Rfam assigns this 82-nucleotide RNA from Jaculus jaculus to the family "small Cajal body-specific RNA 18". Pairs were carried over by alignment from the consensus structure, which was predicted with PFOLD.

RNA sequence: CUGACAAUGAGUAUAUGACCACUGUGCAAUCUGAGUCCUGAGAACCAGAUGACAGAGUGUGCUGAGCACAGACUGAUGCCAG
Numbered sequence: 001c002u003g004a005c006a007a008u009g010a011g012u013a014u015a016u017g018a019c020c021a022c023u024g025u026g027c028a029a030u031c032u033g034a035g036u037c038c039u040g041a042g043a044a045c046c047a048g049a050u051g052a053c054a055g056a057g058u059g060u061g062c063u064g065a066g067c068a069c070a071g072a073c074u075g076a077u078g079c080c081a082g
Base pairs, nucleotide, nucleotide: 002081003080005078038048039047040046
From the family's description: scaRNAs are a specific class of small nuclear RNAs which localise to the Cajal bodies and guide the modification of RNA polymerase II transcribed spliceosomal RNAs U1, U2, U4, U5 and U12. This C/D box domain U91 (also known as U4-8) was identified by Darzacq and is predicted to guide the 2'O-ribose methylation of U4 snRNA C8.
By type it is a small Cajal body RNA.
Taxonomically the source falls in Jaculus (Eukaryota, Vertebrata, Sarcopterygii, Tetrapoda).